[Rfam]
RNA sequence: AGCUUAUCAAGAGAGGUUUAGGGACUGGCCCGAUGAUGCCUCAGCAACCAGCAUUUUAUGCAUGGUGCUAAAUCCAGAAGGUAAUUACCGAAGAUAAGAA
Numbered sequence: 001a002g003c004u005u006a007u008c009a010a011g012a013g014a015g016g017u018u019u020a021g022g023g024a025c026u027g028g029c030c031c032g033a034u035g036a037u038g039c040c041u042c043a044g045c046a047a048c049c050a051g052c053a054u055u056u057u058a059u060g061c062a063u064g065g066u067g068c069u070a071a072a073u074c075c076a077g078a079a080g081g082u083a084a085u086u087a088c089c090g091a092a093g094a095u096a097a098g099a100a
Stems, first nucleotide, its partner, number of pairs: 003098006013042005021031003025077004043069004048065002051061004073092001080089003

The record is a 100-nucleotide RNA sequence from Gracilibacillus dipsosauri, which matches "SAM riboswitch aptamer (S box leader)" in Rfam. The source organism's lineage runs through Bacteria, Bacillati, Bacillota, Bacillaceae and Gracilibacillus. About the family: The SAM riboswitch is found upstream of a number of genes which code for proteins involved in methionine or cysteine biosynthesis in Gram-positive bacteria.